[Rfam]
RNA: Selenocysteine insertion sequence 1
RNA sequence: CUUGCGUUAAUGAGAACAGAAACGUAAACUAUAACCUAGGGGUUUCUGUUGGAUGGUUGGCAAC
Numbered sequence: 001c002u003u004g005c006g007u008u009a010a011u012g013a014g015a016a017c018a019g020a021a022a023c024g025u026a027a028a029c030u031a032u033a034a035c036c037u038a039g040g041g042g043u044u045u046c047u048g049u050u051g052g053a054u055g056g057u058u059g060g061c062a063a064c
Base pairs, nucleotide, nucleotide: 002063003062004061005060015050016049017048018047019046020045021044022043023042029039030038031037